[Rfam]
RNA sequence: CCUUUGCUGAUGAGUCACUUCUUGACUUUCGUUCUUCUGAGCUUGCUGAAGCCACGCUUACUGACCUGAGGAGG
Numbered sequence: 001c002c003u004u005u006g007c008u009g010a011u012g013a014g015u016c017a018c019u020u021c022u023u024g025a026c027u028u029u030c031g032u033u034c035u036u037c038u039g040a041g042c043u044u045g046c047u048g049a050a051g052c053c054a055c056g057c058u059u060a061c062u063g064a065c066c067u068g069a070g071g072a073g074g
Stems, first nucleotide, its partner, number of pairs: 001074003005070001
RNA: Small nucleolar RNA SNORD59